[Rfam]
Background
A member of the RNA family "terC RNA" from Arsenicitalea aurantiaca, 62 nucleotides long. Rfam 15.1 lists 1,112 matches to the family in 772 species. It is annotated as a cis-regulatory element. The match comes from Rfam's covariance-model search (58 bits). The family's consensus secondary structure is taken from published work.
RNA sequence: CUGCGGCGCCGGGCCCCUCUGGCGGCGGGACCUUGAUCCCGUCGUGAUGUCGGAGCUGCUCC
Dot-bracket structure: .....((.((((.........((((((((........))))))))....)))).))......